[Rfam]
RNA sequence: GCGCUCGGGUAAUCGCUGCAUCGUUUGAUGUAGAGGAAAGUCCAUGCUCGCACGGUCUGAGAUGAUCGUAGUGUUCGUGCCUGGCCAAAAAAUAAGCCAGGGUAGUCCGGUUUCGACUGGAUUAACGGCGAGGAAAAUACCUACGUCUUCGGAUAUGGUAUGACUACUCUGAAAAGUGCCACAGUGACGGAGUCCUGUUGGAAACAGCAGGAGUGGAACGAGGUAAACCCCGCGAGCGAGAAACCCAAACAAUGGUAGGGGAGCUUUCUCGAAGGAACUGAACGGAGAGAAGGGCAGAUGUUUGGACACAUCUGGAGAUAGAUGAUUACCGCCGGAGUACGAGGAUAAUAACCGUUUGCAGUACGAUGGAACAGAACAUGGCUUAUAGAG
Numbered sequence: 001g002c003g004c005u006c007g008g009g010u011a012a013u014c015g016c017u018g019c020a021u022c023g024u025u026u027g028a029u030g031u032a033g034a035g036g037a038a039a040g041u042c043c044a045u046g047c048u049c050g051c052a053c054g055g056u057c058u059g060a061g062a063u064g065a066u067c068g069u070a071g072u073g074u075u076c077g078u079g080c081c082u083g084g085c086c087a088a089a090a091a092a093u094a095a096g097c098c099a100g101g102g103u104a105g106u107c108c109g110g111u112u113u114c115g116a117c118u119g120g121a122u123u124a125a126c127g128g129c130g131a132g133g134a135a136a137a138u139a140c141c142u143a144c145g146u147c148u149u150c151g152g153a154u155a156u157g158g159u160a161u162g163a164c165u166a167c168u169c170u171g172a173a174a175a176g177u178g179c180c181a182c183a184g185u186g187a188c189g190g191a192g193u194c195c196u197g198u199u200g201g202a203a204a205c206a207g208c209a210g211g212a213g214u215g216g217a218a219c220g221a222g223g224u225a226a227a228c229c230c231c232g233c234g235a236g237c238g239a240g241a242a243a244c245c246c247a248a249a250c251a252a253u254g255g256u257a258g259g260g261g262a263g264c265u266u267u268c269u270c271g272a273a274g275g276a277a278c279u280g281a282a283c284g285g286a287g288a289g290a291a292g293g294g295c296a297g298a299u300g301u302u303u304g305g306a307c308a309c310a311u312c313u314g315g316a317g318a319u320a321g322a323u324g325a326u327u328a329c330c331g332c333c334g335g336a337g338u339a340c341g342a343g344g345a346u347a348a349u350a351a352c353c354g355u356u357u358g359c360a361g362u363a364c365g366a367u368g369g370a371a372c373a374g375a376a377c378a379u380g381g382c383u384u385a386u387a388g389a390g
Stems, first nucleotide, its partner, number of pairs: 004390003007386001008330007016033006038384003042381005047240005052069006075235005080101006102126001103124009127230002130169003138160004145154003176228002178224003193212008244260003264293007295314007332369003337364004
The record is a 390-nucleotide RNA from Exobacillus caeni, which matches "Bacterial RNase P class B" in Rfam. A search with the family's covariance model found it, with a score of 323 bits.